[Rfam]
RNA sequence: GCAGGAAGCCUAUGAUGUCUGAUGUCUGAACCUGGCUGAAGGACUCUUCUGAAGACACAUCUUUAGUCUCUGAGGCUUCCAGGCAA
Numbered sequence: 001g002c003a004g005g006a007a008g009c010c011u012a013u014g015a016u017g018u019c020u021g022a023u024g025u026c027u028g029a030a031c032c033u034g035g036c037u038g039a040a041g042g043a044c045u046c047u048u049c050u051g052a053a054g055a056c057a058c059a060u061c062u063u064u065a066g067u068c069u070c071u072g073a074g075g076c077u078u079c080c081a082g083g084c085a086a
Stems, first nucleotide, its partner, number of pairs: 004080007